[Rfam]
RNA: c-di-GMP-I riboswitch aptamer
Organism: Anaeromonas frigoriresistens
RNA sequence: AACAUAUAAAGGCAAACUUAUCGAAAGAUAAGGACGCAAAGUUACAAGUCUAAAGCUAUUUUAGCUAUGACAGUUGGGCUGCUAUG
Dot-bracket structure: ...........((...((((((....))))))...))..((((.((((((....((((...))))...)))..)))))))......
Numbered sequence: 001a002a003c004a005u006a007u008a009a010a011g012g013c014a015a016a017c018u019u020a021u022c023g024a025a026a027g028a029u030a031a032g033g034a035c036g037c038a039a040a041g042u043u044a045c046a047a048g049u050c051u052a053a054a055g056c057u058a059u060u061u062u063a064g065c066u067a068u069g070a071c072a073g074u075u076g077g078g079c080u081g082c083u084a085u086g
Stems, first nucleotide, its partner, number of pairs: 012037002017032006040080004045076003048071003055065004